[Rfam]
RNA sequence: CACUUAACCUCACUGUUUAUUUUUGACUUCUUUUUCCUUCCAUAGUUGGAGGGGCUAACUCGUUUGUGAAAGAAAAGUCAAAAACAAACAGAAAGCCUCCCCACUCGGGAGGCUUUUUUUAU
Numbered sequence: 001c002a003c004u005u006a007a008c009c010u011c012a013c014u015g016u017u018u019a020u021u022u023u024u025g026a027c028u029u030c031u032u033u034u035u036c037c038u039u040c041c042a043u044a045g046u047u048g049g050a051g052g053g054g055c056u057a058a059c060u061c062g063u064u065u066g067u068g069a070a071a072g073a074a075a076a077g078u079c080a081a082a083a084a085c086a087a088a089c090a091g092a093a094a095g096c097c098u099c100c101c102c103a104c105u106c107g108g109g110a111g112g113c114u115u116u117u118u119u120u121a122u
Stems, first nucleotide, its partner, number of pairs: 015089004020084010031073003035069002039050004051061003092116010
Rfam assigns this 122-nucleotide RNA sequence from Vibrio parahaemolyticus to the family "Phenylalanine leader peptide". The base pairs follow the family's consensus structure, which was predicted with CMfinder. The literature on the family includes a 2010 paper in Nucleic Acids Res by Gurvich et al., "Two groups of phenylalanine biosynthetic operon leader peptides genes: a high level of apparently incidental frameshifting in decoding Escherichia coli pheL". Rfam 15.1 lists 379 matches to the family in 290 species. Gene Ontology term of the family: cellular amino acid metabolic process. Lineage of the source: Bacteria > Pseudomonadota > Gammaproteobacteria > Vibrionaceae > Vibrio parahaemolyticus.